[Rfam]
RNA sequence: CUCUUAUCAAGAGAAGCUGAGGGACUGGCCCGAUGAAGCUCGGCAACCAUCUAUCAUUCGGAUAGAAAGGUGCUAAUUCCUGCAAAACAAUUGUUUUGAUAGAUAAGAG
Dot-bracket structure: ((((((((....(.(((...(((.[.[[)))......))))((((.((.((((.........))))..))))))...(]].]((((((....))))))..)))))))))
Numbered sequence: 001c002u003c004u005u006a007u008c009a010a011g012a013g014a015a016g017c018u019g020a021g022g023g024a025c026u027g028g029c030c031c032g033a034u035g036a037a038g039c040u041c042g043g044c045a046a047c048c049a050u051c052u053a054u055c056a057u058u059c060g061g062a063u064a065g066a067a068a069g070g071u072g073c074u075a076a077u078u079c080c081u082g083c084a085a086a087a088c089a090a091u092u093g094u095u096u097u098g099a100u101a102g103a104u105a106a107g108a109g
Stems, first nucleotide, its partner, number of pairs: 001109008013041001015040003021031003025082001027080002042074004047070002050066004078101001083098006